[Rfam]
RNA sequence: AUUAUUUUUUUUCGCCGAGCUAUCUUAGCUAAAUUGGUUGCAGUGCAACUAGCAUGCUGUUUUAGCCGUAAACCAAAUUUAACUUUGAAUUUGAGUUUGCCAGGGUUAACAAGGAAACUUGUUUACCUCCCGACUUUGGAAAGGUGACAUGUUAACAGACAAC
Numbered sequence: 001a002u003u004a005u006u007u008u009u010u011u012u013c014g015c016c017g018a019g020c021u022a023u024c025u026u027a028g029c030u031a032a033a034u035u036g037g038u039u040g041c042a043g044u045g046c047a048a049c050u051a052g053c054a055u056g057c058u059g060u061u062u063u064a065g066c067c068g069u070a071a072a073c074c075a076a077a078u079u080u081a082a083c084u085u086u087g088a089a090u091u092u093g094a095g096u097u098u099g100c101c102a103g104g105g106u107u108a109a110c111a112a113g114g115a116a117a118c119u120u121g122u123u124u125a126c127c128u129c130c131c132g133a134c135u136u137u138g139g140a141a142a143g144g145u146g147a148c149a150u151g152u153u154a155a156c157a158g159a160c161a162a163c
Base pairs, nucleotide, nucleotide: 003157006154011149012147013146014145015144016143019066020065021064022063026059027058028057029056034052035051036050037049038048039047040046068100069099070098071097072096103128104127105126106125108123109122110121111120112119113118129139130138